A member of the RNA family "COG3860 RNA" from Chitinivorax tropicus, 58 nucleotides long. By type it is a cis-regulatory element.
RNA sequence: GGGUCGGCAGUUCACCCAGGCGUCGCCACUCUUGAUCGCAAGAGCGCUAAACCUGUUU
Numbered sequence: 001g002g003g004u005c006g007g008c009a010g011u012u013c014a015c016c017c018a019g020g021c022g023u024c025g026c027c028a029c030u031c032u033u034g035a036u037c038g039c040a041a042g043a044g045c046g047c048u049a050a051a052c053c054u055g056u057u058u
Base pairs, nucleotide, nucleotide: 001017002016003015004014029044030043031042032041033040034039